[Rfam]
Nucleotides: 210
Stems, first nucleotide, its partner, number of pairs: 009193003015189004
Number, partner (000 for none) and nucleotide at each position: 001000u002000c003000c004000c005000c006000c007000a008000c009193a010192g011191u012000u013000c014000u015189c016188c017187g018186a019000u020000u021000c022000g023000c024000a025000u026000u027000u028000u029000c030000c031000g032000a033000a034000a035000g036000g037000a038000a039000u040000g041000u042000c043000u044000u045000c046000g047000g048000a049000c050000c051000c052000c053000u054000c055000g056000g057000u058000u059000g060000g061000u062000c063000c064000g065000a066000u067000a068000c069000c070000c071000a072000c073000a074000c075000g076000g077000c078000g079000c080000g081000u082000c083000g084000c085000a086000g087000u088000u089000c090000g091000g092000g093000g094000u095000c096000g097000g098000u099000g100000g101000g102000a103000c104000c105000u106000a107000a108000u109000g110000u111000u112000c113000a114000u115000g116000c117000c118000g119000c120000g121000u122000g123000u124000g125000g126000a127000u128000c129000g130000c131000c132000g133000u134000g135000u136000g137000a138000g139000g140000g141000u142000g143000g144000c145000u146000a147000g148000c149000u150000a151000g152000c153000u154000a155000g156000c157000u158000u159000g160000c161000g162000a163000g164000a165000c166000c167000c168000g169000c170000u171000g172000u173000u174000g175000g176000g177000a178000a179000u180000g181000g182000c183000g184000u185000u186018u187017c188016g189015g190000a191011a192010c193009u194000u195000a196000a197000c198000c199000c200000u201000a202000a203000g204000c205000u206000a207000u208000c209000c210000a